RNA sequence: CUUACAGAGUUCAUUGGCAUUCUGUCCACCUCGCAACAUAGAACAAGCCCCUCCUGUGUUCUUUCAUGGAGGUGGGCAUACUGCCAACUGGAUUCUGUUGG
Numbered sequence: 001c002u003u004a005c006a007g008a009g010u011u012c013a014u015u016g017g018c019a020u021u022c023u024g025u026c027c028a029c030c031u032c033g034c035a036a037c038a039u040a041g042a043a044c045a046a047g048c049c050c051c052u053c054c055u056g057u058g059u060u061c062u063u064u065c066a067u068g069g070a071g072g073u074g075g076g077c078a079u080a081c082u083g084c085c086a087a088c089u090g091g092a093u094u095c096u097g098u099u100g101g
Base pairs, nucleotide, nucleotide: 011091014087015086016085017084018083019082023078024077025076026075027074028073029072030071031070032069
RNA: MIR394 microRNA precursor family
Organism: Hibiscus trionum